The family of this 184-nucleotide RNA from Aneurinibacillus sp. XH2 is "6S / SsrS RNA". The source organism's lineage runs through Bacteria, Bacillota, Bacilli, Caryophanales and Aneurinibacillus. The family's consensus secondary structure is taken from published work. It scores 105 bits against the family's covariance model. The family has 150 seed sequences and 5,006 matches in Rfam 15.1. From the family's description: E. coli 6S RNA was the first non coding RNA to be sequenced, but its function was unknown until recently. It consists of 184 nucleotides that fold into an extended hairpin structure with a large single-stranded internal bulge. The 6S RNA specifically associates with RNA polymerase holoenzyme containing the sigma70 specificity factor. This interaction represses expression from a sigma70-dependent promoter during stationary phase. 6S RNA homologs have recently been identified in most bacterial genomes. Many Gram-positive species have two copies of 6S RNA. In Bacillus subtilis, both copies appear to interact with RNA polymerase holoenzyme containing the housekeeping sigma factor and be expressed during different stages of growth. In many proteobacteria, 6S RNA may be processed from a transcript encoding homologs of the E. coli YgfA protein which is a putative 5-formyltetrahydrofolate cycloligase activity.

[Rfam]
RNA sequence: AGAACCCUGUGAUGUGCGUGAGCGACCCGUUUGUUUUGUACCAACACUAAUGAAAAGGGAAACUGGGGUUCCGCUGUGGCGCAGAAGCCGCCCUGAAUUGAGCGGACCUGUAAAGCAGCGGACAGGUCUCCCACCUGCCAGAGCAGGUUCAAAACACAGGCAUCACGGCAUUCCUGGGGUUCUU
Numbered sequence: 001a002g003a004a005c006c007c008u009g010u011g012a013u014g015u016g017c018g019u020g021a022g023c024g025a026c027c028c029g030u031u032u033g034u035u036u037u038g039u040a041c042c043a044a045c046a047c048u049a050a051u052g053a054a055a056a057g058g059g060a061a062a063c064u065g066g067g068g069u070u071c072c073g074c075u076g077u078g079g080c081g082c083a084g085a086a087g088c089c090g091c092c093c094u095g096a097a098u099u100g101a102g103c104g105g106a107c108c109u110g111u112a113a114a115g116c117a118g119c120g121g122a123c124a125g126g127u128c129u130c131c132c133a134c135c136u137g138c139c140a141g142a143g144c145a146g147g148u149u150c151a152a153a154a155c156a157c158a159g160g161c162a163u164c165a166c167g168g169c170a171u172u173c174c175u176g177g178g179g180u181u182c183u184u
Stems, first nucleotide, its partner, number of pairs: 002182008011173001012171004017167003032156004037151002040148003057132003062127003066123001071121007083109002088105004